RNA sequence: AAGACUAUACUUUCAGGGAUCAUUUCUAUAGUCUGUGACUAGAGAAGUUUCUCUGAUCGUGUAGAGCACCGAAAACCACGAGGAGGAGUUUUAGCAUCCUCUCCUGAGCGUGAAGCUGGCUUUUGGUGUUGCUUUUGUGCAACUGCCACUUGCCAUUGAUGAUCGUUCUUCUCUCCUUGUAGGAGAGUGAGAGGGGGAGGAUGCAGUCUGAGUGGU
Numbered sequence: 001a002a003g004a005c006u007a008u009a010c011u012u013u014c015a016g017g018g019a020u021c022a023u024u025u026c027u028a029u030a031g032u033c034u035g036u037g038a039c040u041a042g043a044g045a046a047g048u049u050u051c052u053c054u055g056a057u058c059g060u061g062u063a064g065a066g067c068a069c070c071g072a073a074a075a076c077c078a079c080g081a082g083g084a085g086g087a088g089u090u091u092u093a094g095c096a097u098c099c100u101c102u103c104c105u106g107a108g109c110g111u112g113a114a115g116c117u118g119g120c121u122u123u124u125g126g127u128g129u130u131g132c133u134u135u136u137g138u139g140c141a142a143c144u145g146c147c148a149c150u151u152g153c154c155a156u157u158g159a160u161g162a163u164c165g166u167u168c169u170u171c172u173c174u175c176c177u178u179g180u181a182g183g184a185g186a187g188u189g190a191g192a193g194g195g196g197g198a199g200g201a202u203g204c205a206g207u208c209u210g211a212g213u214g215g216u
Stems, first nucleotide, its partner, number of pairs: 002040002005037001006035002009032003015027004049065002054061001075216005094204012108166003118154003124148004128143005169190002171187007
The record is a 216-nucleotide RNA sequence from Ochotona princeps, which matches "Small nucleolar RNA U3" in Rfam. NCBI's taxonomy places the organism under Eukaryota, Opisthokonta, Eumetazoa, Vertebrata, Ochotona. Rfam describes the family as follows. Small nucleolar RNAs (snoRNAs) are involved in the processing and modification of rRNA in the nucleolus. There are two main classes of snoRNAs: the box C/D class, and the box H/ACA class. U3 snoRNA is a member of the box C/D class. The family has 87 seed sequences and 19,072 matches in Rfam 15.1. By type it is a C/D-box small nucleolar RNA. Clan: U3 clan.